RNA sequence: CGCUUGCAACCAGACCUGUCCGCGGGCGUAUCAACUCCCGUUCUCGGGGGUGCACUCGUCCGCGAUCAGGCCAGCAUCGGUUUGGGCGGUCGGAUAAAGGCCUUGGGAAUGUAUCUCCUUCCGGGGAGUGUUAUAGCCCUUGGUGCAAUGCGGCCAGCCCGGACCGAGGACCGCGCCUUCGGGCUAGGAUGCUGGCGUAAUGGUUGUAAGCGACCCGUCUUGAAACACGG
Numbered sequence: 001c002g003c004u005u006g007c008a009a010c011c012a013g014a015c016c017u018g019u020c021c022g023c024g025g026g027c028g029u030a031u032c033a034a035c036u037c038c039c040g041u042u043c044u045c046g047g048g049g050g051u052g053c054a055c056u057c058g059u060c061c062g063c064g065a066u067c068a069g070g071c072c073a074g075c076a077u078c079g080g081u082u083u084g085g086g087c088g089g090u091c092g093g094a095u096a097a098a099g100g101c102c103u104u105g106g107g108a109a110u111g112u113a114u115c116u117c118c119u120u121c122c123g124g125g126g127a128g129u130g131u132u133a134u135a136g137c138c139c140u141u142g143g144u145g146c147a148a149u150g151c152g153g154c155c156a157g158c159c160c161g162g163a164c165c166g167a168g169g170a171c172c173g174c175g176c177c178u179u180c181g182g183g184c185u186a187g188g189a190u191g192c193u194g195g196c197g198u199a200a201u202g203g204u205u206g207u208a209a210g211c212g213a214c215c216c217g218u219c220u221u222g223a224a225a226c227a228c229g230g
Stems, first nucleotide, its partner, number of pairs: 001212012017068002021064004072194007215230004